[Rfam]
RNA sequence: ACCUACUGAGGGCAGAACAGGCAGCUGCCGUACCUUUAUGGUCUUAAAAAGAUGCUGGAAACGCCACCCAGCCAGUAGGA
Numbered sequence: 001a002c003c004u005a006c007u008g009a010g011g012g013c014a015g016a017a018c019a020g021g022c023a024g025c026u027g028c029c030g031u032a033c034c035u036u037u038a039u040g041g042u043c044u045u046a047a048a049a050a051g052a053u054g055c056u057g058g059a060a061a062c063g064c065c066a067c068c069c070a071g072c073c074a075g076u077a078g079g080a
Stems, first nucleotide, its partner, number of pairs: 002079007011029005020065003031049001032042003054072005
RNA: skipping-rope RNA